[Rfam]
Nucleotides: 113
Stems, first nucleotide, its partner, number of pairs: 001113001003111006013041001015040003021031003025088004042080004047076002049072001084105001089102004
Number, partner (000 for none) and nucleotide at each position: 001113a002000a003111c004110u005109u006108a007107u008106c009000a010000a011000g012000a013041g014000c015040g016039g017038u018000g019000g020000a021031g022030g023029g024000a025088c026087u027086g028085g029023c030022c031021c032000g033000a034000a035000g036000a037000a038017a039016c040015c041013c042080a043079g044078c045077a046000a047076c048075c049072g050000g051000u052000g053000u054000a055000u056000u057000u058000u059000a060000g061000u062000a063000u064000a065000a066000a067000g068000u069000a070000u071000a072049c073000u074000u075048g076047g077045u078044g079043c080042u081000a082000a083000a084105u085028c086027c087026a088025g089102c090101a091100g092099c093000g094000u095000a096000a097000g098000a099092g100091c101090u102089g103000a104000a105084a106008g107007a108006u109005a110004a111003g112000g113001u